[Rfam]
RNA sequence: GGCCACCAAAGGCAAACCCGGCGCGAGCCGGUGACGCAAAGCCUCCGGUCUUGCGACCGUCCUGAACUCGAACUGAGGGCAGGCGCAGCAGCAAGAUAGCGGGGUUGCCGUU
Numbered sequence: 001g002g003c004c005a006c007c008a009a010a011g012g013c014a015a016a017c018c019c020g021g022c023g024c025g026a027g028c029c030g031g032u033g034a035c036g037c038a039a040a041g042c043c044u045c046c047g048g049u050c051u052u053g054c055g056a057c058c059g060u061c062c063u064g065a066a067c068u069c070g071a072a073c074u075g076a077g078g079g080c081a082g083g084c085g086c087a088g089c090a091g092c093a094a095g096a097u098a099g100c101g102g103g104g105u106u107g108c109c110g111u112u
Stems, first nucleotide, its partner, number of pairs: 012037002018031005040106004045102003048097007
c-di-GMP-I riboswitch aptamer: a 112-nucleotide RNA from Roseateles sp. DAIF2. Its family is annotated with cyclic-di-GMP binding in the Gene Ontology.